Shown here is an 82-nucleotide sequence from Patiria miniata, a member of the family "Small nucleolar RNA SNORD34". Its family is annotated with nucleolus and RNA processing in the Gene Ontology. The organism belongs to Patiria, within Eukaryota. The family's consensus secondary structure was predicted with PFOLD. Rfam's curators write: snoRNA U34 is found in intron 5 of the ribosomal protein L13a gene in humans. The literature on the family includes a 2002 paper in Mol Cell Biol by Galardi et al., "Purified box C/D snoRNPs are able to reproduce site-specific 2'-O-methylation of target RNA in vitro".
RNA sequence: UGCUGCCGAUGAUGUUGACUAUAUACACUUAACCUACAUUGUUUGAUGUUCGGUGAGAAGAAUAACCAAUUCUGAGGCACCA
Numbered sequence: 001u002g003c004u005g006c007c008g009a010u011g012a013u014g015u016u017g018a019c020u021a022u023a024u025a026c027a028c029u030u031a032a033c034c035u036a037c038a039u040u041g042u043u044u045g046a047u048g049u050u051c052g053g054u055g056a057g058a059a060g061a062a063u064a065a066c067c068a069a070u071u072c073u074g075a076g077g078c079a080c081c082a
Base pairs, nucleotide, nucleotide: 001082002081004079005078006077007076